The family of this 73-nucleotide sequence from Pan troglodytes is "mir-4428 microRNA precursor family". The sequence is in the family's curated seed alignment. The base pairs follow the family's consensus structure, which was predicted with RNAalifold. Gene Ontology terms of the family: miRNA-mediated post-transcriptional gene silencing and RISC complex.
Nucleotides: 073
Stems, first nucleotide, its partner, number of pairs: 002072004007068003011064007019057004023052006030045002032042002
Number, partner (000 for none) and nucleotide at each position: 001000u002072u003071g004070g005069c006000a007068g008067g009066u010000g011064c012063c013062a014061u015060g016059u017058u018000g019057c020056c021055u022054g023052c024051u025050c026049c027048u028047u029000a030045c031044u032042g033041u034000a035000c036000a037000c038000g039000u040000g041033g042032c043000u044031g045030g046000c047028a048027a049026g050025g051024a052023g053000a054022c055021g056020g057019g058017a059016a060015c061014a062013u063012g064011g065000a066009g067008c068007c069005g070004c071003c072002a073000u